[Rfam]
Overview: The family of this 129-nucleotide sequence from Oryctolagus cuniculus is "Small nucleolar RNA SNORA11". It is annotated as an H/ACA-box small nucleolar RNA. It is one of the family's seed sequences. Rfam's curators write: U107 (SNORA11) is a member of the H/ACA class of snoRNAs that guide the sites of modification of uridines to pseudouridines. This snoRNA was identified by RT-PCR from blood cells and its expression confirmed by Northern blot analysis. There is no predicted target for this guide snRNA. NCBI's taxonomy places the organism under Eukaryota, Opisthokonta, Mammalia, Lagomorpha, Oryctolagus. A reference for the family is Gu et al. (2005), "A novel experimental approach for systematic identification of box H/ACA snoRNAs from eukaryotes", Nucleic Acids Res. The family's consensus secondary structure was predicted with RNAalifold.

RNA sequence: GGGGUGUGCUCAGAGCAAGGGGCCUGAAGAAUGGCUCCUCUGUUUACAACACACCCAACAGGAAUCUUGGGUCAUUGUGAUGAGGUCCAUAAAACUUGUGGCCUCUUUACAAACUAAUGCCCUACACAU
Numbered sequence: 001g002g003g004g005u006g007u008g009c010u011c012a013g014a015g016c017a018a019g020g021g022g023c024c025u026g027a028a029g030a031a032u033g034g035c036u037c038c039u040c041u042g043u044u045u046a047c048a049a050c051a052c053a054c055c056c057a058a059c060a061g062g063a064a065u066c067u068u069g070g071g072u073c074a075u076u077g078u079g080a081u082g083a084g085g086u087c088c089a090u091a092a093a094a095c096u097u098g099u100g101g102c103c104u105c106u107u108u109a110c111a112a113a114c115u116a117a118u119g120c121c122c123u124a125c126a127c128a129u
Base pairs, nucleotide, nucleotide: 002056003055004054005053006052007051008050013045014044015043016042017041019039020038021037022035023034024033069122070121071120072119077114078113081111082110084104085103088100089099090098091097092096